[Rfam]
RNA: Glycine riboswitch aptamer
RNA sequence: CUCGCUCUCGCGGGAGAGAUCGGGUGCCUUUCGGGGCGACCCGGAGCCGAAGGCGCAACCGCCCCGGAAACGCUCAGGCAAACGGACCGCGAGGACAUU
Numbered sequence: 001c002u003c004g005c006u007c008u009c010g011c012g013g014g015a016g017a018g019a020u021c022g023g024g025u026g027c028c029u030u031u032c033g034g035g036g037c038g039a040c041c042c043g044g045a046g047c048c049g050a051a052g053g054c055g056c057a058a059c060c061g062c063c064c065c066g067g068a069a070a071c072g073c074u075c076a077g078g079c080a081a082a083c084g085g086a087c088c089g090c091g092a093g094g095a096c097a098u099u
Stems, first nucleotide, its partner, number of pairs: 006094008020044006046079003049075002053073003059067002
Dot-bracket structure: .....((((((((......((((((.............)))))).(((((..(((...((.....))...))))).))).......)))))))).....